[Rfam]
RNA sequence: GCAUGGCAAUGGAUUUAUGGUGGGGUCUGCCACAUGAUCCUUCCAUAGUGUACCCCAUGCUAUAUUAUACGUGCUACUCCGAACCAUUGUCUGGCCUUUCUCUGUAGGCUUUGUUCACUGAAGUGAGUAGGACAUCC
Numbered sequence: 001g002c003a004u005g006g007c008a009a010u011g012g013a014u015u016u017a018u019g020g021u022g023g024g025g026u027c028u029g030c031c032a033c034a035u036g037a038u039c040c041u042u043c044c045a046u047a048g049u050g051u052a053c054c055c056c057a058u059g060c061u062a063u064a065u066u067a068u069a070c071g072u073g074c075u076a077c078u079c080c081g082a083a084c085c086a087u088u089g090u091c092u093g094g095c096c097u098u099u100c101u102c103u104g105u106a107g108g109c110u111u112u113g114u115u116c117a118c119u120g121a122a123g124u125g126a127g128u129a130g131g132a133c134a135u136c137c
Base pairs, nucleotide, nucleotide: 001060002059003058004057005055006054015048016047017046018045019044020043022041023040024039026036074130075129076128077127078126079125085120086119093110094109095108096107097106
RNA: Small nucleolar RNA SNORA42/SNORA80 family